[Rfam]
RNA: Small nucleolar RNA U19
RNA sequence: AUUUGACUUAGUUAGGGGGCAAAAAUUAAUAGAAAUCUAAUGUUUAUUAGGUUUUAUUCAUAGAUAGGUAUAUUGAAGGAGCAAUCUUUUUCUCUCAUAUCAGUUGUUCUUCAAGCAGCCUCUCACAUUU
Numbered sequence: 001a002u003u004u005g006a007c008u009u010a011g012u013u014a015g016g017g018g019g020c021a022a023a024a025a026u027u028a029a030u031a032g033a034a035a036u037c038u039a040a041u042g043u044u045u046a047u048u049a050g051g052u053u054u055u056a057u058u059c060a061u062a063g064a065u066a067g068g069u070a071u072a073u074u075g076a077a078g079g080a081g082c083a084a085u086c087u088u089u090u091u092c093u094c095u096c097a098u099a100u101c102a103g104u105u106g107u108u109c110u111u112c113a114a115g116c117a118g119c120c121u122c123u124c125a126c127a128u129u130u
Stems, first nucleotide, its partner, number of pairs: 004021002007018003034054002036051003063124002066121004073114003077111009